[Rfam]
RNA sequence: GCUUGGUCCCCCCGCAACAAUUCGCUACGAACCCCGCCAGGCCCGGAAGGGAGCAACGGUAGUAGUAUAAUUGUGUGCCGGGGUGUGGCUGGGUUGG
Numbered sequence: 001g002c003u004u005g006g007u008c009c010c011c012c013c014g015c016a017a018c019a020a021u022u023c024g025c026u027a028c029g030a031a032c033c034c035c036g037c038c039a040g041g042c043c044c045g046g047a048a049g050g051g052a053g054c055a056a057c058g059g060u061a062g063u064a065g066u067a068u069a070a071u072u073g074u075g076u077g078c079c080g081g082g083g084u085g086u087g088g089c090u091g092g093g094u095u096g097g
Stems, first nucleotide, its partner, number of pairs: 004091005010083005015075001017074006024066005034059003042051003
RNA: Bacterial small signal recognition particle RNA
Organism: Saccharophagus degradans